[Rfam]
RNA sequence: UAUCGAGAUAGAGGCGCGAAAACCAUCAGUACUUAUCUGAGCGGGAGCUAGGAAGAUAAGGAAAGGGGAAUUCGCCGAAAUGCUUUCGUCGCCGGAUGAAAGGGUUGGGCGUAUGAAGAAUAUUCAUACGACUGUCACAUUUGUGGAGCACUAUCCAGUUU
Numbered sequence: 001u002a003u004c005g006a007g008a009u010a011g012a013g014g015c016g017c018g019a020a021a022a023c024c025a026u027c028a029g030u031a032c033u034u035a036u037c038u039g040a041g042c043g044g045g046a047g048c049u050a051g052g053a054a055g056a057u058a059a060g061g062a063a064a065g066g067g068g069a070a071u072u073c074g075c076c077g078a079a080a081u082g083c084u085u086u087c088g089u090c091g092c093c094g095g096a097u098g099a100a101a102g103g104g105u106u107g108g109g110c111g112u113a114u115g116a117a118g119a120a121u122a123u124u125c126a127u128a129c130g131a132c133u134g135u136c137a138c139a140u141u142u143g144u145g146g147a148g149c150a151c152u153a154u155c156c157a158g159u160u161u
Base pairs, nucleotide, nucleotide: 007155008154009153010152011151016075017074018073019072020071023068024067032060033059034058035057036056037055038054079106080105081104083102084101085100086099087098088097089096090095107133108132110130111129112128113127114126115125116124117123135146136145137144138143
RNA: Lysine riboswitch aptamer